[Rfam]
RNA sequence: GCGGACCAGCUGUGUCCGCUGGGAUGUGGCCCAGCACGGGCUGAACCGUAAA
Numbered sequence: 001g002c003g004g005a006c007c008a009g010c011u012g013u014g015u016c017c018g019c020u021g022g023g024a025u026g027u028g029g030c031c032c033a034g035c036a037c038g039g040g041c042u043g044a045a046c047c048g049u050a051a052a
Base pairs, nucleotide, nucleotide: 001019002018003017004016005015020048021047022046028042029041030040031039032038

Background:
Rfam assigns this 52-nucleotide RNA to the family "eL15-Euryarchaeota ribosomal protein leader". The family's consensus secondary structure is taken from published work.